[Rfam]
RNA sequence: AAACGUUUUAGAAUGAUGACGCAUAGUUCAGUUGAUCCUACUGUGAUAACUCACUUAAAUUGAAAUUGGUCUUUCACCCCUACCUGACCCAAACGUUU
Number, nucleotide and partner (000 for none) at each position: 001a000002a000003a000004c095005g094006u093007u092008u091009u000010a000011g000012a000013a000014u000015g000016a000017u000018g000019a000020c000021g000022c000023a000024u000025a000026g000027u000028u000029c000030a000031g000032u000033u000034g000035a000036u000037c000038c000039u000040a000041c000042u000043g000044u000045g000046a000047u000048a000049a000050c000051u000052c000053a000054c000055u000056u000057a000058a000059a000060u000061u000062g000063a000064a000065a000066u000067u000068g000069g000070u000071c000072u000073u000074u000075c000076a000077c000078c000079c000080c000081u000082a000083c000084c000085u000086g000087a000088c000089c000090c000091a008092a007093a006094c005095g004096u000097u000098u000